Shown here is a 92-nucleotide RNA sequence from Streptomyces sp. RB17, a member of the family "sodF sRNA". On this family, see Kim et al., Nucleic Acids Res 2014: "Inverse regulation of Fe- and Ni-containing SOD genes by a Fur family regulator Nur through small RNA processed from 3'UTR of the sodF mRNA".

RNA sequence: ACGUCCGGCCCCGUGAUCGUCUUCUCACCCCUCACGGCGGCAGGCGGAUGAAAGGAGGGCCCCCGCGCGGACGUGACGCGCGGGGGUCCUCC
Numbered sequence: 001a002c003g004u005c006c007g008g009c010c011c012c013g014u015g016a017u018c019g020u021c022u023u024c025u026c027a028c029c030c031c032u033c034a035c036g037g038c039g040g041c042a043g044g045c046g047g048a049u050g051a052a053a054g055g056a057g058g059g060c061c062c063c064c065g066c067g068c069g070g071a072c073g074u075g076a077c078g079c080g081c082g083g084g085g086g087u088c089c090u091c092c
Stems, first nucleotide, its partner, number of pairs: 002046002005044002008041003011037001013035004019029001054092016

The family has 6 seed sequences and 336 matches in Rfam 15.1. The base pairs follow the family's consensus structure. The match comes from Rfam's covariance-model search (86 bits).